Shown here is a 111-nucleotide RNA sequence from Aneurinibacillus soli, a member of the family "pan motif".
[Rfam]
RNA sequence: AGGGCUGUAUCAUACGAGCGGCACCAGACAUGCCUUUUUUUAUUUUUUUGGAAUGAUUUAUAAAUACGUAAUGCAAAUCUGCUCUGAGCCGAUAAGGACCGAGACAGAGGA
Dot-bracket structure: .(((((((.((....))))))).)).....................................................((((((.(..((.....)).).))).)))....
About this RNA:
The match comes from Rfam's covariance-model search (46 bits).